[Rfam]
RNA: mir-375 microRNA precursor family
RNA sequence: CCUGACGUUGAGCCAUACGCACAAUACCUGGACACGAUGUUUUGUUCGUUCGGCUCGCGUUAAGC
Number, nucleotide and partner (000 for none) at each position: 001c064002c000003u062004g000005a060006c059007g058008u000009u057010g056011a055012g054013c053014c052015a000016u000017a000018c048019g047020c000021a045022c044023a043024a042025u000026a040027c039028c000029u000030g000031g000032a000033c000034a000035c000036g000037a000038u000039g027040u026041u000042u024043u023044g022045u021046u000047c019048g018049u000050u000051c000052g014053g013054c012055u011056c010057g009058c007059g006060u005061u000062a003063a000064g001065c000